[Rfam]
The record is a 115-nucleotide RNA, which matches "COG3610-DE RNA" in Rfam.
It is annotated as a small RNA.

RNA sequence: GACGGGUCGAGGAAAGUGCGAAAGCACUCUUUGACAGGAAGCUAUCAGACUUUAAAUAGUCAGGCACGGGAAGUGCUGAUAGUGAGCAACUUUGGAUGUGAACCAAAGACUCUGA
Numbered sequence: 001g002a003c004g005g006g007u008c009g010a011g012g013a014a015a016g017u018g019c020g021a022a023a024g025c026a027c028u029c030u031u032u033g034a035c036a037g038g039a040a041g042c043u044a045u046c047a048g049a050c051u052u053u054a055a056a057u058a059g060u061c062a063g064g065c066a067c068g069g070g071a072a073g074u075g076c077u078g079a080u081a082g083u084g085a086g087c088a089a090c091u092u093u094g095g096a097u098g099u100g101a102a103c104c105a106a107a108g109a110c111u112c113u114g115a
Stems, first nucleotide, its partner, number of pairs: 006035008016027004041083006048061004063077005084112003090108005
Rfam's curators put it in the seed alignment.